[Rfam]
Source information
Rfam assigns this 73-nucleotide RNA from Georgenia yuyongxinii to the family "Actino-pnp RNA".

RNA sequence: GUCGGUCCUCGGUAGUGGCCUCCGGAACGCGGGACGACCCGCGCCCGUCCGUGGGCCUCGAUCGAUGACCGCC
Numbered sequence: 001g002u003c004g005g006u007c008c009u010c011g012g013u014a015g016u017g018g019c020c021u022c023c024g025g026a027a028c029g030c031g032g033g034a035c036g037a038c039c040c041g042c043g044c045c046c047g048u049c050c051g052u053g054g055g056c057c058u059c060g061a062u063c064g065a066u067g068a069c070c071g072c073c
Stems, first nucleotide, its partner, number of pairs: 001073001003071005009065005017057005023051004030047003

Lineage of the source: Bacteria > Bacillati > Actinomycetota > Actinomycetes > Georgenia.